[Rfam]
RNA sequence: AGGCUUAUGAUGAAUCGAUCCGAAAGGAUCUUAGCGGAUUUCAGAGAGGCUUUCGAGUCGAUGAUCUGAAUCUUAGUUGUUACACACACUGAGGCCU
Numbered sequence: 001a002g003g004c005u006u007a008u009g010a011u012g013a014a015u016c017g018a019u020c021c022g023a024a025a026g027g028a029u030c031u032u033a034g035c036g037g038a039u040u041u042c043a044g045a046g047a048g049g050c051u052u053u054c055g056a057g058u059c060g061a062u063g064a065u066c067u068g069a070a071u072c073u074u075a076g077u078u079g080u081u082a083c084a085c086a087c088a089c090u091g092a093g094g095c096c097u
Stems, first nucleotide, its partner, number of pairs: 001097005